RNA sequence: CAGAGGAGGCCCCUACGUGAUGCGAAGCAGCACGUUAUAAUAGGGGCCGACGACAUGCCCUCGAAGCCGCAGGCUGAGGGGGCGACACCAUAG
Numbered sequence: 001c002a003g004a005g006g007a008g009g010c011c012c013c014u015a016c017g018u019g020a021u022g023c024g025a026a027g028c029a030g031c032a033c034g035u036u037a038u039a040a041u042a043g044g045g046g047c048c049g050a051c052g053a054c055a056u057g058c059c060c061u062c063g064a065a066g067c068c069g070c071a072g073g074c075u076g077a078g079g080g081g082g083c084g085a086c087a088c089c090a091u092a093g
Stems, first nucleotide, its partner, number of pairs: 008048006017033003021029002057083003061079002065075002

Background:
The family of this 93-nucleotide RNA sequence is "GA-cis RNA". Rfam's curators put it in the seed alignment. Rfam classes the family as a small RNA.